[Rfam]
RNA sequence: UGGUAAUUUAUCUGAUAUAGAACACUCAUAUCGAUAAAAGGAUUUGAACCAUUU
Numbered sequence: 001u002g003g004u005a006a007u008u009u010a011u012c013u014g015a016u017a018u019a020g021a022a023c024a025c026u027c028a029u030a031u032c033g034a035u036a037a038a039a040g041g042a043u044u045u046g047a048a049c050c051a052u053u054u
Base pairs, nucleotide, nucleotide: 011034012033014032015031016030017029018028
RNA: Plastid-atpF group II-D1 intron